[Rfam]
A member of the RNA family "tRNA" from Armatimonadetes bacterium Uphvl-Ar2, 73 nucleotides long.
Taxonomically the source falls in Armatimonadota (Bacteria, Bacillati).
Rfam classes the family as a transfer RNA.
Clan: tRNA clan.
From the family's description: Transfer RNA (tRNA) molecules are approximately 80 nucleotides in length. Their secondary structure includes four short double-helical elements and three loops (D, anti-codon, and T loops).
Pairs were carried over by alignment from the consensus structure, which is taken from published work.
The match comes from Rfam's covariance-model search (71 bits).
RNA sequence: GAGUCGGUAGCUCAGUAGGUAGAGCAGCGGCCUUUUAAGCCGCGGGUCCUGGGUUCGAGCCCCAGCCGGCUCA
Number, nucleotide and partner (000 for none) at each position: 001g072002a071003g070004u069005c068006g067007g066008u000009a000010g025011c024012u023013c022014a000015g000016u000017a000018g000019g000020u000021a000022g013023a012024g011025c010026a000027g043028c042029g041030g040031c039032c000033u000034u000035u000036u000037a000038a000039g031040c030041c029042g028043c027044g000045g000046g000047u000048c000049c065050u064051g063052g062053g061054u000055u000056c000057g000058a000059g000060c000061c053062c052063c051064a050065g049066c007067c006068g005069g004070c003071u002072c001073a000